Notes
A member of the RNA family "Bacteriophage Diversity-Generating Retroelement RNA", 128 nucleotides long. The sequence is in the family's curated seed alignment.
RNA sequence: ACUCUGCAAACGCUACGGCUUUGCAGGUCGGCUCUUCAGCAUGUGGUCAGCCGGCACUGUCCUCCUUCGGGAAAUACGCUACACGGUCUGGCAUAGCGUCUAGUAGCACGUCGAACGGCGCGGCCAGC
Numbered sequence: 001a002c003u004c005u006g007c008a009a010a011c012g013c014u015a016c017g018g019c020u021u022u023g024c025a026g027g028u029c030g031g032c033u034c035u036u037c038a039g040c041a042u043g044u045g046g047u048c049a050g051c052c053g054g055c056a057c058u059g060u061c062c063u064c065c066u067u068c069g070g071g072a073a074a075u076a077c078g079c080u081a082c083a084c085g086g087u088c089u090g091g092c093a094u095a096g097c098g099u100c101u102a103g104u105a106g107c108a109c110g111u112c113g114a115a116c117g118g119c120g121c122g123g124c125c126a127g128c
Stems, first nucleotide, its partner, number of pairs: 001028002004026007012019002063072003086128001088127005097120004106112001
The family's RNA type in Rfam is small RNA. Pairs were carried over by alignment from the consensus structure, which is taken from published work.